A member of the RNA family "Bacillus sRNA ncr1015" from Paenibacillus sp. MY03, 115 nucleotides long. Lineage of the source: Bacteria > Bacillati > Bacillota > Paenibacillaceae > Paenibacillus. The literature on the family includes a 2010 paper in Nucleic Acids Res by Irnov et al., "Identification of regulatory RNAs in Bacillus subtilis". The match comes from Rfam's covariance-model search (76 bits). It is annotated as a small RNA.
RNA sequence: GUAUACGAUGCCAUUCCUUUGCACAUUUCUAAAGUGAUUGUAAUUUGAUUAUAUCAUCGUGCCUUGUUUAUGUACAAUAAAAAGAACCUGAUCAAACGAUCAGGUUCUUUUCUUU
Numbered sequence: 001g002u003a004u005a006c007g008a009u010g011c012c013a014u015u016c017c018u019u020u021g022c023a024c025a026u027u028u029c030u031a032a033a034g035u036g037a038u039u040g041u042a043a044u045u046u047g048a049u050u051a052u053a054u055c056a057u058c059g060u061g062c063c064u065u066g067u068u069u070a071u072g073u074a075c076a077a078u079a080a081a082a083a084g085a086a087c088c089u090g091a092u093c094a095a096a097c098g099a100u101c102a103g104g105u106u107c108u109u110u111u112c113u114u115u
Stems, first nucleotide, its partner, number of pairs: 032069004036062001039059002080111012
Dot-bracket structure: ...............................(((((..((.................))..)...))))..........((((((((((((........))))))))))))....